[Rfam]
RNA sequence: UUACAAUUAAAGGAUAUUUCUUGCGAAUGACUCAGAAAUGUCUUUUAAUUGUUCGGU
Numbered sequence: 001u002u003a004c005a006a007u008u009a010a011a012g013g014a015u016a017u018u019u020c021u022u023g024c025g026a027a028u029g030a031c032u033c034a035g036a037a038a039u040g041u042c043u044u045u046u047a048a049u050u051g052u053u054c055g056g057u
Base pairs, nucleotide, nucleotide: 003052004051005050006049007048008047009046010045012043013042014041015040016039017038018037019036020035021034024029
A member of the RNA family "mir-7552 microRNA precursor family" from Maylandia zebra, 57 nucleotides long. Pairs were carried over by alignment from the consensus structure, which was predicted with RNAalifold. The organism belongs to Maylandia zebra complex, within Eukaryota. The match comes from Rfam's covariance-model search (65 bits).